[Rfam]
RNA sequence: CUUUUUUACGAGGUAUCAGCACUUUUCUUUCAUUAGUGGGGAAGGAAGGAUGAAAAAUACAAACCAGCAGUAGACUUUUAAAGUUUAAAUAGACAAGUCUGAGAGUCUGAACUUCUCUUCCAUUUUACGUUUACCCUCCAAAGAGGCACUUGUUUGCCUGCUUCACUGCUGAUCAGCAAGGGUAAGUUGGAAAGUUUUA
Numbered sequence: 001c002u003u004u005u006u007u008a009c010g011a012g013g014u015a016u017c018a019g020c021a022c023u024u025u026u027c028u029u030u031c032a033u034u035a036g037u038g039g040g041g042a043a044g045g046a047a048g049g050a051u052g053a054a055a056a057a058u059a060c061a062a063a064c065c066a067g068c069a070g071u072a073g074a075c076u077u078u079u080a081a082a083g084u085u086u087a088a089a090u091a092g093a094c095a096a097g098u099c100u101g102a103g104a105g106u107c108u109g110a111a112c113u114u115c116u117c118u119u120c121c122a123u124u125u126u127a128c129g130u131u132u133a134c135c136c137u138c139c140a141a142a143g144a145g146g147c148a149c150u151u152g153u154u155u156g157c158c159u160g161c162u163u164c165a166c167u168g169c170u171g172a173u174c175a176g177c178a179a180g181g182g183u184a185a186g187u188u189g190g191a192a193a194g195u196u197u198u199a
Base pairs, nucleotide, nucleotide: 003019004018007015008014009013029145030144031143033141034140036138038136039135041132042131043130044128049124050123051122052121055119056118072100073099074098075097076096077095101115102114104113105112148195149194150193151192154190155189156188158186161182162181163180166176167175168174

The record is a 199-nucleotide sequence from Crocodylus porosus, which matches "Connexin-43 internal ribosome entry site (IRES)" in Rfam. The literature on the family includes a 1999 paper in FEBS Lett by Schiavi et al., "Connexin43 mRNA contains a functional internal ribosome entry site". The source organism's lineage runs through Eukaryota, Metazoa, Sauropsida, Archelosauria and Crocodylus. Rfam describes the family as follows. This family represents the connexin-43 internal ribosome entry site (IRES) which allows cap independent translation during conditions such as heat shock and stress. A search with the family's covariance model found it, with a score of 107 bits. Gene Ontology term of the family: ribosome binding.